[Rfam]
RNA: Small nucleolar RNA Z152/R70/R12/
Organism: Apium graveolens
RNA sequence: UAUGCUGUGAUGAGGCUAAGCACCAAAUUGGUGUAUUAGGGCAGUGGACAAGACUCGACAGUCUUGCCGUGAUCCUGUAAUUAAACGACUUCUCCUUCCACUGAGCAUU
Numbered sequence: 001u002a003u004g005c006u007g008u009g010a011u012g013a014g015g016c017u018a019a020g021c022a023c024c025a026a027a028u029u030g031g032u033g034u035a036u037u038a039g040g041g042c043a044g045u046g047g048a049c050a051a052g053a054c055u056c057g058a059c060a061g062u063c064u065u066g067c068c069g070u071g072a073u074c075c076u077g078u079a080a081u082u083a084a085a086c087g088a089c090u091u092c093u094c095c096u097u098c099c100a101c102u103g104a105g106c107a108u109u
Stems, first nucleotide, its partner, number of pairs: 002108004